[Rfam]
RNA sequence: CGAUAGGCUUGCCGGGGAGCUAGGCGUGCCCUGUAACCGAAAUCGUCUUCAGCGGUGGGACUUCAGGGGGCGGCAGAGCUGAAACGGCAGGCUCGCAAAGUAACUAUGAGACUUUGUCCUGCAGAGUUGGAGUAUCCUGUCGUUCCCGCCGGAGGGUGGGCGCGGCUCGACCAAUCGGGGGAAUCGGGUCAGGCCCUGACGGGAGCAGCCUUACCCCGAGCUACUGACGUUUGCGGGGAAGCAGGGUUGAGAAGCGAUGCGAUAAACCUGCCUGCGGAGGCGAUGUCCACCUCUGAUCGCCUAUCA
Numbered sequence: 001c002g003a004u005a006g007g008c009u010u011g012c013c014g015g016g017g018a019g020c021u022a023g024g025c026g027u028g029c030c031c032u033g034u035a036a037c038c039g040a041a042a043u044c045g046u047c048u049u050c051a052g053c054g055g056u057g058g059g060a061c062u063u064c065a066g067g068g069g070g071c072g073g074c075a076g077a078g079c080u081g082a083a084a085c086g087g088c089a090g091g092c093u094c095g096c097a098a099a100g101u102a103a104c105u106a107u108g109a110g111a112c113u114u115u116g117u118c119c120u121g122c123a124g125a126g127u128u129g130g131a132g133u134a135u136c137c138u139g140u141c142g143u144u145c146c147c148g149c150c151g152g153a154g155g156g157u158g159g160g161c162g163c164g165g166c167u168c169g170a171c172c173a174a175u176c177g178g179g180g181g182a183a184u185c186g187g188g189u190c191a192g193g194c195c196c197u198g199a200c201g202g203g204a205g206c207a208g209c210c211u212u213a214c215c216c217c218g219a220g221c222u223a224c225u226g227a228c229g230u231u232u233g234c235g236g237g238g239a240a241g242c243a244g245g246g247u248u249g250a251g252a253a254g255c256g257a258u259g260c261g262a263u264a265a266a267c268c269u270g271c272c273u274g275c276g277g278a279g280g281c282g283a284u285g286u287c288c289a290c291c292u293c294u295g296a297u298c299g300c301c302u303a304u305c306a
Stems, first nucleotide, its partner, number of pairs: 002305007012058002014032004019027002036056004063296007072287004078281002085276001086272006093262005100255002104251002110248008118237008126228005131222002135170002139166005145160006175219006186211004194203003

Archaeal signal recognition particle RNA: a 306-nucleotide RNA sequence from Thermoplasmatales archaeon BRNA1. The source organism's lineage runs through Archaea, Methanobacteriati, Thermoplasmatota, Thermoplasmata and Thermoplasmatales. The match comes from Rfam's covariance-model search (153 bits). The family's consensus secondary structure is taken from published work. Its family is annotated with SRP-dependent cotranslational protein targeting to membrane, signal sequence recognition and signal recognition particle, plasma membrane targeting in the Gene Ontology.